[Rfam]
RNA sequence: ACAGUGCCACGGCCGUUUGAGCUAAGGGUCGGUUAGACAAUAAAAGGCGCAGAUUACUGCGCCUUUUUU
Numbered sequence: 001a002c003a004g005u006g007c008c009a010c011g012g013c014c015g016u017u018u019g020a021g022c023u024a025a026g027g028g029u030c031g032g033u034u035a036g037a038c039a040a041u042a043a044a045a046g047g048c049g050c051a052g053a054u055u056a057c058u059g060c061g062c063c064u065u066u067u068u069u
Base pairs, nucleotide, nucleotide: 002019003018004017006013007012042067043066044065045064046063047062048061049060050059051058052057